[Rfam]
RNA sequence: AUUGUUUGAGGUGGUAAAUUUCGUAGCGACCACACGCCGCUGGUAUUGACAGGGGAAACCCGAGAGAUGCAGGAGAAUGCUACGCCUGCCAAAUAAU
Numbered sequence: 001a002u003u004g005u006u007u008g009a010g011g012u013g014g015u016a017a018a019u020u021u022c023g024u025a026g027c028g029a030c031c032a033c034a035c036g037c038c039g040c041u042g043g044u045a046u047u048g049a050c051a052g053g054g055g056a057a058a059c060c061c062g063a064g065a066g067a068u069g070c071a072g073g074a075g076a077a078u079g080c081u082a083c084g085c086c087u088g089c090c091a092a093a094u095a096a097u
Stems, first nucleotide, its partner, number of pairs: 001097008011033005023083005035064001037054002069089005
RNA: skipping-rope RNA
Organism: Lachnospiraceae bacterium OF09-33XD